[Rfam]
RNA: Glycine riboswitch aptamer
RNA sequence: AGAAUAAACUCAGGAGAGUCUCUUAAAAAGAGCGCCGAAGGUGUACGCAGUCUGAACAGACUGUUAAUCUCUCAGGCAAAAGGAUGGAGGAAGAAAG
Numbered sequence: 001a002g003a004a005u006a007a008a009c010u011c012a013g014g015a016g017a018g019u020c021u022c023u024u025a026a027a028a029a030g031a032g033c034g035c036c037g038a039a040g041g042u043g044u045a046c047g048c049a050g051u052c053u054g055a056a057c058a059g060a061c062u063g064u065u066a067a068u069c070u071c072u073c074a075g076g077c078a079a080a081a082g083g084a085u086g087g088a089g090g091a092a093g094a095a096a097g
Stems, first nucleotide, its partner, number of pairs: 009089003013085001020032004034077003037073002041071001043069001047064005